TPP riboswitch aptamer (THI element): a 111-nucleotide RNA from Lysinibacillus telephonicus. The organism belongs to Lysinibacillus, within Bacteria. The match comes from Rfam's covariance-model search (84 bits). Its family is annotated with thiamine pyrophosphate binding in the Gene Ontology.
RNA sequence: GAAGAAAUGUAGGGGAGCUGGUAUGGCCAGCUGAGAUUGUAUCCCGUAAGAUACUAACCCUUUGAACCUGAUUUGGUUAAUACCAGCGUAGGGAACAUUGACUUCAAUUUG
Numbered sequence: 001g002a003a004g005a006a007a008u009g010u011a012g013g014g015g016a017g018c019u020g021g022u023a024u025g026g027c028c029a030g031c032u033g034a035g036a037u038u039g040u041a042u043c044c045c046g047u048a049a050g051a052u053a054c055u056a057a058c059c060c061u062u063u064g065a066a067c068c069u070g071a072u073u074u075g076g077u078u079a080a081u082a083c084c085a086g087c088g089u090a091g092g093g094a095a096c097a098u099u100g101a102c103u104u105c106a107a108u109u110u111g
Stems, first nucleotide, its partner, number of pairs: 006099005011061004016055001017031005039054004067092004073086004